SAH (S-adenosyl-L-homocysteine) riboswitch aptamer: an 86-nucleotide RNA from Acidihalobacter prosperus. The match comes from Rfam's covariance-model search (55 bits). The base pairs follow the family's consensus structure, which is taken from published work.
RNA sequence: GCCGCCGGGGAGCGUUGCAACAGGGCAUAUCCCCUGCCAGGCCUGGCGGCGCGGCCAUUCAUCCAUUGCAACGGCGCUCGCGAACG
Numbered sequence: 001g002c003c004g005c006c007g008g009g010g011a012g013c014g015u016u017g018c019a020a021c022a023g024g025g026c027a028u029a030u031c032c033c034c035u036g037c038c039a040g041g042c043c044u045g046g047c048g049g050c051g052c053g054g055c056c057a058u059u060c061a062u063c064c065a066u067u068g069c070a071a072c073g074g075c076g077c078u079c080g081c082g083a084a085c086g
Stems, first nucleotide, its partner, number of pairs: 002049007021036005
Dot-bracket structure: .(((((((............(((((......)))))......))))))).....................................